The record is a 53-nucleotide sequence, which matches "Mu-gpT-DE RNA" in Rfam. By type it is a small RNA. Rfam's curators put it in the seed alignment.
RNA sequence: CCCUGACAGUCCGGGGUUCGGACUGACACUAGCCACGACAGGAGAUAAAAAUG
Numbered sequence: 001c002c003c004u005g006a007c008a009g010u011c012c013g014g015g016g017u018u019c020g021g022a023c024u025g026a027c028a029c030u031a032g033c034c035a036c037g038a039c040a041g042g043a044g045a046u047a048a049a050a051a052u053g
Base pairs, nucleotide, nucleotide: 002042003041004040005039007025008024009023010022011021